A member of the RNA family "Bacterial RNase P class A" from Thiomonas sp. X19, 349 nucleotides long.
By type it is a ribozyme.
It scores 185 bits against the family's covariance model.
Lineage of the source: Bacteria > Pseudomonadota > Betaproteobacteria > Burkholderiales > Thiomonas.

RNA sequence: GAAGCGGGCCGGGCAGCCGCGCUGGCGCGGGGCGACCCGCGCGGUGAGGAAGGUCCGGACUCCACAGGGCGGGGUGACGGCUAACGGCCGUGCGCGGCGACGCGACGAACAGGACCACAGAGACGAGCAAGCGCGGCGCAAGCCGCGUGGACGUGAAACGCGGCAACCUCCACCCGGAGCAACACCAAAUAGGCAGGCGAAGCAGGGCUUUCGGGCCUUGUGAAAGCGCGGCCCGCGCGAGCCUGCGGGUAGGUGGCAACGAGCCGCUGCGGUAACGCACGGCCCAGAGGAAUGGCUGCCACGUCGGGCAACCGAUGCACAGAAUCCGGCCUACAGGCCCGCUUCGCAC
Numbered sequence: 001g002a003a004g005c006g007g008g009c010c011g012g013g014c015a016g017c018c019g020c021g022c023u024g025g026c027g028c029g030g031g032g033c034g035a036c037c038c039g040c041g042c043g044g045u046g047a048g049g050a051a052g053g054u055c056c057g058g059a060c061u062c063c064a065c066a067g068g069g070c071g072g073g074g075u076g077a078c079g080g081c082u083a084a085c086g087g088c089c090g091u092g093c094g095c096g097g098c099g100a101c102g103c104g105a106c107g108a109a110c111a112g113g114a115c116c117a118c119a120g121a122g123a124c125g126a127g128c129a130a131g132c133g134c135g136g137c138g139c140a141a142g143c144c145g146c147g148u149g150g151a152c153g154u155g156a157a158a159c160g161c162g163g164c165a166a167c168c169u170c171c172a173c174c175c176g177g178a179g180c181a182a183c184a185c186c187a188a189a190u191a192g193g194c195a196g197g198c199g200a201a202g203c204a205g206g207g208c209u210u211u212c213g214g215g216c217c218u219u220g221u222g223a224a225a226g227c228g229c230g231g232c233c234c235g236c237g238c239g240a241g242c243c244u245g246c247g248g249g250u251a252g253g254u255g256g257c258a259a260c261g262a263g264c265c266g267c268u269g270c271g272g273u274a275a276c277g278c279a280c281g282g283c284c285c286a287g288a289g290g291a292a293u294g295g296c297u298g299c300c301a302c303g304u305c306g307g308g309c310a311a312c313c314g315a316u317g318c319a320c321a322g323a324a325u326c327c328g329g330c331c332u333a334c335a336g337g338c339c340c341g342c343u344u345c346g347c348a349c
Base pairs, nucleotide, nucleotide: 001345002344003343004342005341006340007339008338009337010336011334012300013299014298015297016296017295018294020046021045022044023043024042026041027040028039029038051332052331053330055329056328057327058326059325060179061178062177063176067234068233069232070231072175073174074173075172076171077091078090079089080088081087092106093104094103095102096101107170108169112168113167115163116162131148132147133146134145135144136143137142183255184254185253186252193246194245195244196243197242198241226238227237228236229235263283264282265281266280268279269278270277271276